[Rfam]
RNA sequence: GGAGGAAAAAAUGGCAAUAUGGAGGCAUAGCAGGGCGAUGAACACAAACAGCUAUGCCAACAUCUUGCCACCUUUUCUUUCC
Numbered sequence: 001g002g003a004g005g006a007a008a009a010a011a012u013g014g015c016a017a018u019a020u021g022g023a024g025g026c027a028u029a030g031c032a033g034g035g036c037g038a039u040g041a042a043c044a045c046a047a048a049c050a051g052c053u054a055u056g057c058c059a060a061c062a063u064c065u066u067g068c069c070a071c072c073u074u075u076u077c078u079u080u081c082c
Base pairs, nucleotide, nucleotide: 005077006076007075008074009073012070013069014068015067016066017065019063020062021061024058025057026056027055028054029053030052031051
About this RNA
A member of the RNA family "mir-31 microRNA precursor family" from Clarias magur, 82 nucleotides long. The base pairs follow the family's consensus structure, which was predicted with RNAalifold. For this family Rfam cites "The small RNA profile during Drosophila melanogaster development" (Aravin et al., Dev Cell, 2003). Lineage of the source: Eukaryota > Vertebrata > Euteleostomi > Osteoglossocephalai > Clarias. Its Rfam clan is "mir-31 microRNA precursor family".